[Rfam]
RNA sequence: CUUUAGACUCGCAUAGAGUUUAAGGCGGAAGGAG
Number, nucleotide and partner (000 for none) at each position: 001c025002u024003u023004u022005a021006g020007a019008c018009u017010c016011g000012c000013a000014u000015a000016g010017a009018g008019u007020u006021u005022a004023a003024g002025g001026c000027g000028g000029a000030a000031g000032g000033a000034g000
The family of this 34-nucleotide sequence is "L31-Firmicutes ribosomal protein leader". The literature on the family includes a 2020 paper in BMC Microbiol by Eckert and Weinberg, "Discovery of 20 novel ribosomal leader candidates in bacteria and archaea". Rfam classes the family as a cis-regulatory leader. It is one of the family's seed sequences.